[Rfam]
RNA sequence: ACCGGCCUGCGAAGCAGGUGGCGUGAAUACCGCAGGUUGAACCAAUACUCUUUGAACAGGGUCCUGGCUCGUAUAAAUGGCUCGGUGUGCUAUGUCCGCCAGUCCGGAAAGCCUAAAGAGCCACGGCUAGGGCCCACCGCUUAUUAGCGGGUUCACCUGCGCCUCACGGCACGGCCAAGUGGGUCGGUC
Numbered sequence: 001a002c003c004g005g006c007c008u009g010c011g012a013a014g015c016a017g018g019u020g021g022c023g024u025g026a027a028u029a030c031c032g033c034a035g036g037u038u039g040a041a042c043c044a045a046u047a048c049u050c051u052u053u054g055a056a057c058a059g060g061g062u063c064c065u066g067g068c069u070c071g072u073a074u075a076a077a078u079g080g081c082u083c084g085g086u087g088u089g090c091u092a093u094g095u096c097c098g099c100c101a102g103u104c105c106g107g108a109a110a111g112c113c114u115a116a117a118g119a120g121c122c123a124c125g126g127c128u129a130g131g132g133c134c135c136a137c138c139g140c141u142u143a144u145u146a147g148c149g150g151g152u153u154c155a156c157c158u159g160c161g162c163c164u165c166a167c168g169g170c171a172c173g174g175c176c177a178a179g180u181g182g183g184u185c186g187g188u189c
Base pairs, nucleotide, nucleotide: 002187003186004185005184006183007182008181009180010179014175015174018172019171033159034158035157036156038155039154040153041152042151043150059135060134061133063131064130065129066128067127068126070125078123079122080121081120082119083118089112090111095108096107097106098105
RNA: 6S / SsrS RNA
Organism: Granulicella sp. 5B5